[Rfam]
Annotation:
Rfam assigns this 75-nucleotide RNA from Kitasatospora kifunensis to the family "ASpks TB sRNA". Pairs were carried over by alignment from the consensus structure, which is taken from published work.
RNA sequence: CUUGAUCGAUCCGAGCCAGAGCGGCUGAUCGGCUGGGCGGUCCUGACCGUAGGUGGCCAGCAGCGCCUGUGCCUC
Numbered sequence: 001c002u003u004g005a006u007c008g009a010u011c012c013g014a015g016c017c018a019g020a021g022c023g024g025c026u027g028a029u030c031g032g033c034u035g036g037g038c039g040g041u042c043c044u045g046a047c048c049g050u051a052g053g054u055g056g057c058c059a060g061c062a063g064c065g066c067c068u069g070u071g072c073c074u075c
Stems, first nucleotide, its partner, number of pairs: 014026004032070002038065002043060003047056003
A search with the family's covariance model found it, with a score of 89 bits. Taxonomically the source falls in Kitasatospora (Bacteria, Actinomycetota, Actinomycetes, Streptomycetaceae).